Shown here is a 57-nucleotide sequence from Paraburkholderia phytofirmans, a member of the family "Betaproteobacteria toxic small RNA". Overexpression in amino aid rich medium attenuates growth, suggesting role in repressing amino acid intake and metabolism. Pairs were carried over by alignment from the consensus structure, which was predicted with WAR.
RNA sequence: UGUCUCCUCCAUGUCUCAACAUGGAUUAAGCCCGCCCACUGAGGUGGGCUUUUUUUC
Numbered sequence: 001u002g003u004c005u006c007c008u009c010c011a012u013g014u015c016u017c018a019a020c021a022u023g024g025a026u027u028a029a030g031c032c033c034g035c036c037c038a039c040u041g042a043g044g045u046g047g048g049c050u051u052u053u054u055u056u057c
Stems, first nucleotide, its partner, number of pairs: 008025007029050008